[Rfam]
RNA sequence: UGAUAAAAUAGUGAGGAAAGUGUAUGCGUAGAUCAUCCUUGCAUGAAUCUACGCAUACACUUGACGAACAUCCCUCAUAAGCAAGUAGCGCAAAGCGCGGAUUGCUUAUGAGGGCGGAUGCGAAGCAGCCGAUUUUAUCA
Numbered sequence: 001u002g003a004u005a006a007a008a009u010a011g012u013g014a015g016g017a018a019a020g021u022g023u024a025u026g027c028g029u030a031g032a033u034c035a036u037c038c039u040u041g042c043a044u045g046a047a048u049c050u051a052c053g054c055a056u057a058c059a060c061u062u063g064a065c066g067a068a069c070a071u072c073c074c075u076c077a078u079a080a081g082c083a084a085g086u087a088g089c090g091c092a093a094a095g096c097g098c099g100g101a102u103u104g105c106u107u108a109u110g111a112g113g114g115c116g117g118a119u120g121c122g123a124a125g126c127a128g129c130c131g132a133u134u135u136u137a138u139c140a
Stems, first nucleotide, its partner, number of pairs: 001140007012068001015065001018062015033046004072113001074112005081105004088098004115131003119127003

Shown here is a 140-nucleotide RNA from bacterium 0.1xD8-71, a member of the family "Clostridiales-1 RNA". It scores 66 bits against the family's covariance model.